[Rfam]
RNA: Glycine riboswitch aptamer
RNA sequence: UCGUUCGGAAAGGAAGAAGUCGGCUGCAUGCCGGUGCCGAAGGAGCAACCGCCCCGGUAAACUCUCAGGCAAAAGGACCUUCUGAACUU
Numbered sequence: 001u002c003g004u005u006c007g008g009a010a011a012g013g014a015a016g017a018a019g020u021c022g023g024c025u026g027c028a029u030g031c032c033g034g035u036g037c038c039g040a041a042g043g044a045g046c047a048a049c050c051g052c053c054c055c056g057g058u059a060a061a062c063u064c065u066c067a068g069g070c071a072a073a074a075g076g077a078c079c080u081u082c083u084g085a086a087c088u089u
Stems, first nucleotide, its partner, number of pairs: 006084004011080003020034004036070003039066002043064003049057002